A member of the RNA family "mir-219 microRNA precursor family" from Merluccius polli, 74 nucleotides long.
Lineage of the source: Eukaryota > Chordata > Acanthomorphata > Zeiogadaria > Merluccius.
The match comes from Rfam's covariance-model search (64 bits).

[Rfam]
RNA sequence: UCUAGAGUUGAUUGUCCAAACGCAAUUCUUGUAUCUCCAGAACCAGGAGUUGUGGAUGGACAUCAAUCCCUCGG
Numbered sequence: 001u002c003u004a005g006a007g008u009u010g011a012u013u014g015u016c017c018a019a020a021c022g023c024a025a026u027u028c029u030u031g032u033a034u035c036u037c038c039a040g041a042a043c044c045a046g047g048a049g050u051u052g053u054g055g056a057u058g059g060a061c062a063u064c065a066a067u068c069c070c071u072c073g074g
Stems, first nucleotide, its partner, number of pairs: 002073001004071002007068001009065004014061005021054011